[Rfam]
RNA sequence: AUCCAUGACUCCAUGGGGGCUGCCGCCCGUGGCUGACCCCCUUCCUAGGCAUGGAAGAGCAGUGUCUUGCUAAUUGGCAAAACUUCUACUCUCAUGUGGGUAUUAGUCGUUGACUGUAGCAAGUAACAAGC
Numbered sequence: 001a002u003c004c005a006u007g008a009c010u011c012c013a014u015g016g017g018g019g020c021u022g023c024c025g026c027c028c029g030u031g032g033c034u035g036a037c038c039c040c041c042u043u044c045c046u047a048g049g050c051a052u053g054g055a056a057g058a059g060c061a062g063u064g065u066c067u068u069g070c071u072a073a074u075u076g077g078c079a080a081a082a083c084u085u086c087u088a089c090u091c092u093c094a095u096g097u098g099g100g101u102a103u104u105a106g107u108c109g110u111u112g113a114c115u116g117u118a119g120c121a122a123g124u125a126a127c128a129a130g131c
Stems, first nucleotide, its partner, number of pairs: 002055006015041004020035001022033003068128002071125001074122003077117002080115001083106002088101004
RNA: Small nucleolar RNA SNORA24